[Rfam]
RNA sequence: UGCAAGUGAUGUUUAUCUCACGAUGGUCUUCCAAGCAUAUGGCACUGACGACAAAGCCAAAUGGCAAUACUGAUGCAGCCCU
Numbered sequence: 001u002g003c004a005a006g007u008g009a010u011g012u013u014u015a016u017c018u019c020a021c022g023a024u025g026g027u028c029u030u031c032c033a034a035g036c037a038u039a040u041g042g043c044a045c046u047g048a049c050g051a052c053a054a055a056g057c058c059a060a061a062u063g064g065c066a067a068u069a070c071u072g073a074u075g076c077a078g079c080c081c082u
Stems, first nucleotide, its partner, number of pairs: 001077004
Background: The family of this 82-nucleotide RNA sequence from Albula goreensis is "Small nucleolar RNA SNORD35". On this family, see Nicoloso et al., J Mol Biol 1996: "Intron-encoded, antisense small nucleolar RNAs: the characterization of nine novel species points to their direct role as guides for the 2'-O-ribose methylation of rRNAs". About the family: U35 is a C/D box snoRNA located in intron 6 of ribosomal protein L13A and intron 3 of ribosomal protein S11 in humans and at homologous positions in mouse and chicken ribosomal protein genes. U35 guides the methylation of 2'-O-ribose sites in 28S rRNA. It is annotated as a C/D-box small nucleolar RNA. Its Rfam clan is "SNORD35 clan".